The family of this 126-nucleotide RNA from Cynara cardunculus is "MIR396 microRNA precursor family". The match comes from Rfam's covariance-model search (83 bits). Lineage of the source: Eukaryota > Viridiplantae > Euphyllophyta > Asterales > Cynara cardunculus subsp. cardunculus.

RNA sequence: AGCCAUGUUUUUCCACAGCUUUCUUGAACUUUAAUAAUUCAUGUGUUAAUUCCGUUCUCAAGAAUUCCUUUUCGAGAAUUCACGUGAUUAAACGAAGUUCAAGAAAGCUGUGGGAAAACAUGACAA
Numbered sequence: 001a002g003c004c005a006u007g008u009u010u011u012u013c014c015a016c017a018g019c020u021u022u023c024u025u026g027a028a029c030u031u032u033a034a035u036a037a038u039u040c041a042u043g044u045g046u047u048a049a050u051u052c053c054g055u056u057c058u059c060a061a062g063a064a065u066u067c068c069u070u071u072u073c074g075a076g077a078a079u080u081c082a083c084g085u086g087a088u089u090a091a092a093c094g095a096a097g098u099u100c101a102a103g104a105a106a107g108c109u110g111u112g113g114g115a116a117a118a119c120a121u122g123a124c125a126a
Base pairs, nucleotide, nucleotide: 004122005121006120007119013113014112015111017109018108019107020106021105022104024102025101026100027099029097030096031095032094